glmS glucosamine-6-phosphate activated ribozyme aptamer: a 165-nucleotide RNA sequence from Listeria grayi. The match comes from Rfam's covariance-model search (119 bits). A reference for the family is Winkler et al. (2004), "Control of gene expression by a natural metabolite-responsive ribozyme", Nature. The family's consensus secondary structure is taken from published work. NCBI's taxonomy places the organism under Bacteria, Caryophanales, Listeriaceae, Listeria, Listeria grayi.

[Rfam]
RNA sequence: AAUUUAAUAGAAGCGCCAGAACUGAUCGAACGGGGUAUCAGUUGACGAGGAGGAGAUUAAUCGAGUUUUUUCGGCGGGAGUCUCCCGGUUAUUCAUGUAGCCGUUAUGUCUGAGUUACAAAACAAGCAGGCGACUGUUUGGACAGAAAGCUUAGACGCAUGAGUU
Numbered sequence: 001a002a003u004u005u006a007a008u009a010g011a012a013g014c015g016c017c018a019g020a021a022c023u024g025a026u027c028g029a030a031c032g033g034g035g036u037a038u039c040a041g042u043u044g045a046c047g048a049g050g051a052g053g054a055g056a057u058u059a060a061u062c063g064a065g066u067u068u069u070u071u072c073g074g075c076g077g078g079a080g081u082c083u084c085c086c087g088g089u090u091a092u093u094c095a096u097g098u099a100g101c102c103g104u105u106a107u108g109u110c111u112g113a114g115u116u117a118c119a120a121a122a123c124a125a126g127c128a129g130g131c132g133a134c135u136g137u138u139u140g141g142a143c144a145g146a147a148a149g150c151u152u153a154g155a156c157g158c159a160u161g162a163g164u165u
Stems, first nucleotide, its partner, number of pairs: 020043007052085005061074004086103006109155007123140007